[Rfam]
The family of this 104-nucleotide RNA sequence from Salinivibrio sp. KP-1 is "Vibrio RNA AS9". The match comes from Rfam's covariance-model search (68 bits). The family's RNA type in Rfam is antisense RNA. Rfam describes the family as follows. Identified by direct cloning an parallel sequencing experiments with 5S/tRNA depletion. Confirmed by Northern blot.

RNA sequence: UUGCUGGCAGCGCUGCUGGGUCAGCGUCAAACAAAUCAACCCUCGGCCAUGCGUGGCCAUAAAGUUGAUCGCUUCUGGGGUCACUGCUUCUGCCGCGAUGAUCA
Numbered sequence: 001u002u003g004c005u006g007g008c009a010g011c012g013c014u015g016c017u018g019g020g021u022c023a024g025c026g027u028c029a030a031a032c033a034a035a036u037c038a039a040c041c042c043u044c045g046g047c048c049a050u051g052c053g054u055g056g057c058c059a060u061a062a063a064g065u066u067g068a069u070c071g072c073u074u075c076u077g078g079g080g081u082c083a084c085u086g087c088u089u090c091u092g093c094c095g096c097g098a099u100g101a102u103c104a
Stems, first nucleotide, its partner, number of pairs: 003058001005056001007054002010027006035050002040046002066104005071096002075092001077090001078088002